[Rfam]
RNA sequence: UUUGCCGGGGUGGGCAGGCCCUGUGGGCAACUAACCCUAAUGGCGGCUGCGCCCCUCACACCCACCCGCUGUUUUACUCGCUGACUUUCAGCGGGCAAAGGGCGCGGCUCAAGGGAAGGGGGGGCGGUGAUGGGGGGGAGAAAAGAGUUCCGGCCUCAAAAAAAGCCAGCGAUGGGGAUCCACACCCCGGCUCACCCUGGGGUCCCUGUCCCUCCAGGGACCUGUCCUGGGAUGGUCCAGCCCUCGCCCCUCGUGGAGGCCGCGGUCGGUAGGCCCAGCGCCACUGCCGCCGCGAAGAGUUCGUCUCUGUCAGCCUCGGCGGUGGCCGCGACCUGAGGGCCGGCCCGCCCACCCUGGGCAGCCGGGGGACCCCAGCAGAGCAAAACGGGUGCGGCGCCGUGGGGCGCUGAGCAGCCGUGGCUCCCAGAGAUGUGGGAGUGCGCGGUCGGCGCCGCCCCGACAUCC
Numbered sequence: 001u002u003u004g005c006c007g008g009g010g011u012g013g014g015c016a017g018g019c020c021c022u023g024u025g026g027g028c029a030a031c032u033a034a035c036c037c038u039a040a041u042g043g044c045g046g047c048u049g050c051g052c053c054c055c056u057c058a059c060a061c062c063c064a065c066c067c068g069c070u071g072u073u074u075u076a077c078u079c080g081c082u083g084a085c086u087u088u089c090a091g092c093g094g095g096c097a098a099a100g101g102g103c104g105c106g107g108c109u110c111a112a113g114g115g116a117a118g119g120g121g122g123g124g125c126g127g128u129g130a131u132g133g134g135g136g137g138g139a140g141a142a143a144a145g146a147g148u149u150c151c152g153g154c155c156u157c158a159a160a161a162a163a164a165g166c167c168a169g170c171g172a173u174g175g176g177g178a179u180c181c182a183c184a185c186c187c188c189g190g191c192u193c194a195c196c197c198u199g200g201g202g203u204c205c206c207u208g209u210c211c212c213u214c215c216a217g218g219g220a221c222c223u224g225u226c227c228u229g230g231g232a233u234g235g236u237c238c239a240g241c242c243c244u245c246g247c248c249c250c251u252c253g254u255g256g257a258g259g260c261c262g263c264g265g266u267c268g269g270u271a272g273g274c275c276c277a278g279c280g281c282c283a284c285u286g287c288c289g290c291c292g293c294g295a296a297g298a299g300u301u302c303g304u305c306u307c308u309g310u311c312a313g314c315c316u317c318g319g320c321g322g323u324g325g326c327c328g329c330g331a332c333c334u335g336a337g338g339g340c341c342g343g344c345c346c347g348c349c350c351a352c353c354c355u356g357g358g359c360a361g362c363c364g365g366g367g368g369a370c371c372c373c374a375g376c377a378g379a380g381c382a383a384a385a386c387g388g389g390u391g392c393g394g395c396g397c398c399g400u401g402g403g404g405c406g407c408u409g410a411g412c413a414g415c416c417g418u419g420g421c422u423c424c425c426a427g428a429g430a431u432g433u434g435g436g437a438g439u440g441c442g443c444g445g446u447c448g449g450c451g452c453c454g455c456c457c458c459g460a461c462a463u464c465c
Stems, first nucleotide, its partner, number of pairs: 004191009014181001016179001019177004051105002054102002065095007080170004085165001086163003197375007230345002233342006242330001244328001246326003261294005267289004272282003296308004389457001391455008415445005422437004
RNA: Vertebrate telomerase RNA